The family of this 133-nucleotide sequence from Otolemur garnettii is "U11 spliceosomal RNA".
By type it is a spliceosomal small nuclear RNA.
The source organism's lineage runs through Eukaryota, Chordata, Gnathostomata, Primates and Otolemur.
Its family is annotated with pre-mRNA 5'-splice site binding, U11 snRNP and mRNA 5'-splice site recognition in the Gene Ontology.
For this family Rfam cites "Identification of an evolutionarily divergent U11 small nuclear ribonucleoprotein particle in Drosophila" (Schneider et al., Proc Natl Acad Sci U S A, 2004).

RNA sequence: AAAAAGGGCUUCUGUAGUGAGUGGCACACGUGGGGCAACUCAACUGCUCUUUGUGUAGAAUCGACAUCAAGAGAUUUCGGAAGCAUAAUUUUUGGUACCUGGGCAGCUGGUGGUAAUUGGUCCCAGUGCCUGU
Numbered sequence: 001a002a003a004a005a006g007g008g009c010u011u012c013u014g015u016a017g018u019g020a021g022u023g024g025c026a027c028a029c030g031u032g033g034g035g036c037a038a039c040u041c042a043a044c045u046g047c048u049c050u051u052u053g054u055g056u057a058g059a060a061u062c063g064a065c066a067u068c069a070a071g072a073g074a075u076u077u078c079g080g081a082a083g084c085a086u087a088a089u090u091u092u093u094g095g096u097a098c099c100u101g102g103g104c105a106g107c108u109g110g111u112g113g114u115a116a117u118u119g120g121u122c123c124c125a126g127u128g129c130c131u132g133u
Stems, first nucleotide, its partner, number of pairs: 008084005013026003017022001027055004032050006056079001058077005101131004106127005112122003